[Rfam]
RNA: Small nucleolar RNA SNORA23
RNA sequence: GUAAAGCGGUGUGCGUGGUCCCUGUCUGCGUUUAGUGCUGUCUCCAGUCUGUGUUUUACAGUCUGUGUGACUGUGCUCACAUCACAUCUGCAGCCACAGAGCCACUGGAGAUCAUAGUACUGGCCUAGUGAUGUCAGUGUGACCCUCUACCACUGGCCAGCCUCCAUUCUCUCCUACAGAA
Numbered sequence: 001g002u003a004a005a006g007c008g009g010u011g012u013g014c015g016u017g018g019u020c021c022c023u024g025u026c027u028g029c030g031u032u033u034a035g036u037g038c039u040g041u042c043u044c045c046a047g048u049c050u051g052u053g054u055u056u057u058a059c060a061g062u063c064u065g066u067g068u069g070a071c072u073g074u075g076c077u078c079a080c081a082u083c084a085c086a087u088c089u090g091c092a093g094c095c096a097c098a099g100a101g102c103c104a105c106u107g108g109a110g111a112u113c114a115u116a117g118u119a120c121u122g123g124c125c126u127a128g129u130g131a132u133g134u135c136a137g138u139g140u141g142a143c144c145c146u147c148u149a150c151c152a153c154u155g156g157c158c159a160g161c162c163u164c165c166a167u168u169c170u171c172u173c174c175u176a177c178a179g180a181a
Stems, first nucleotide, its partner, number of pairs: 013091003030082002033079001035077001036075003040071002044067001045065003050060003107174005120160006127154004133144001134142002